[Rfam]
RNA sequence: CCUGCGGUCAGACGGAAAGACCCCGUGCACCUUUACUAUAGCUUUACACUGGCAUUCGCCAAGGCAUGUGUAGGAUAGGUGGUAGGCUUUGAAGCGUGGGCGCCAGCUCGCGUGGAGCCAUCCUUGAAAUACCACCCUUAUCUUCGUGGAUGUCUAACCGCGGCCCGUUAUCCGGGUCCGGGACAGUGUAUGGUGGGUAGUUUGACUGGGGCGGUCGCCUCCGAAAGAGUAACGGAGGCGCGCGAUGGUAGGCUCAGACCGGUCGGAAAUCGGUCGUCGAGUGCAAUGGCAUAAGCCUGCCUGACUGCGAGACUGACAAGUCGAGCAGAGACGAAAGUCGGUCAUAGUGAUCCGGUGGUCCCGCGUGGAAGGGCCAUCGCUCAACGGAUAAAAGGUACGCCGGGGAUAACAGGCUGAUGACCCCCAAGAGUCCAUAUCGACGGGGUUGUUUGGCACCUCGAUGUCGGCUCAUCGCAUCCUGGGGCUGGAGCAGGUCCCAAGGGUUUGGCUGUUCGCCAAUUAAAGCGGUACGUGAGCUGGGUUCAGAACGUCGUGAGACAGUUCGGUCCCUAUCUGCCGUGGGUGUA
Numbered sequence: 001c002c003u004g005c006g007g008u009c010a011g012a013c014g015g016a017a018a019g020a021c022c023c024c025g026u027g028c029a030c031c032u033u034u035a036c037u038a039u040a041g042c043u044u045u046a047c048a049c050u051g052g053c054a055u056u057c058g059c060c061a062a063g064g065c066a067u068g069u070g071u072a073g074g075a076u077a078g079g080u081g082g083u084a085g086g087c088u089u090u091g092a093a094g095c096g097u098g099g100g101c102g103c104c105a106g107c108u109c110g111c112g113u114g115g116a117g118c119c120a121u122c123c124u125u126g127a128a129a130u131a132c133c134a135c136c137c138u139u140a141u142c143u144u145c146g147u148g149g150a151u152g153u154c155u156a157a158c159c160g161c162g163g164c165c166c167g168u169u170a171u172c173c174g175g176g177u178c179c180g181g182g183a184c185a186g187u188g189u190a191u192g193g194u195g196g197g198u199a200g201u202u203u204g205a206c207u208g209g210g211g212c213g214g215u216c217g218c219c220u221c222c223g224a225a226a227g228a229g230u231a232a233c234g235g236a237g238g239c240g241c242g243c244g245a246u247g248g249u250a251g252g253c254u255c256a257g258a259c260c261g262g263u264c265g266g267a268a269a270u271c272g273g274u275c276g277u278c279g280a281g282u283g284c285a286a287u288g289g290c291a292u293a294a295g296c297c298u299g300c301c302u303g304a305c306u307g308c309g310a311g312a313c314u315g316a317c318a319a320g321u322c323g324a325g326c327a328g329a330g331a332c333g334a335a336a337g338u339c340g341g342u343c344a345u346a347g348u349g350a351u352c353c354g355g356u357g358g359u360c361c362c363g364c365g366u367g368g369a370a371g372g373g374c375c376a377u378c379g380c381u382c383a384a385c386g387g388a389u390a391a392a393a394g395g396u397a398c399g400c401c402g403g404g405g406a407u408a409a410c411a412g413g414c415u416g417a418u419g420a421c422c423c424c425c426a427a428g429a430g431u432c433c434a435u436a437u438c439g440a441c442g443g444g445g446u447u448g449u450u451u452g453g454c455a456c457c458u459c460g461a462u463g464u465c466g467g468c469u470c471a472u473c474g475c476a477u478c479c480u481g482g483g484g485c486u487g488g489a490g491c492a493g494g495u496c497c498c499a500a501g502g503g504u505u506u507g508g509c510u511g512u513u514c515g516c517c518a519a520u521u522a523a524a525g526c527g528g529u530a531c532g533u534g535a536g537c538u539g540g541g542u543u544c545a546g547a548a549c550g551u552c553g554u555g556a557g558a559c560a561g562u563u564c565g566g567u568c569c570c571u572a573u574c575u576g577c578c579g580u581g582g583g584u585g586u587a
Stems, first nucleotide, its partner, number of pairs: 001583008010575003014570002022404004027400002029396005035201004042193002045190004051154009061144004066139001068137001078136005085119003094113008158181003162178006204216004217239006240385001242342002248300006254280002257275006281290002305328004311322003330339003353379007361372002413454003417451001418448007428438002465540001466538004470532001471529005478503002481498006505519005546564004550559003
Background: A member of the RNA family "Bacterial large subunit ribosomal RNA" from Parahoeflea phototrophica, 587 nucleotides of a longer RNA. Lineage of the source: Bacteria > Pseudomonadota > Alphaproteobacteria > Parahoeflea > Parahoeflea phototrophica. The base pairs follow the family's consensus structure, which is taken from published work. It scores 2753 bits against the family's covariance model.